[Rfam]
RNA: mir-929 microRNA precursor family
Organism: Tribolium castaneum
RNA sequence: CGGGGUCAAAUUGACUCUAGUAGGGAGUCCGUUACUUUAUAGCGACUCCCUAACGGAGUCAGGUUGACUCCCUU
Numbered sequence: 001c002g003g004g005g006u007c008a009a010a011u012u013g014a015c016u017c018u019a020g021u022a023g024g025g026a027g028u029c030c031g032u033u034a035c036u037u038u039a040u041a042g043c044g045a046c047u048c049c050c051u052a053a054c055g056g057a058g059u060c061a062g063g064u065u066g067a068c069u070c071c072c073u074u
Stems, first nucleotide, its partner, number of pairs: 011062008021052009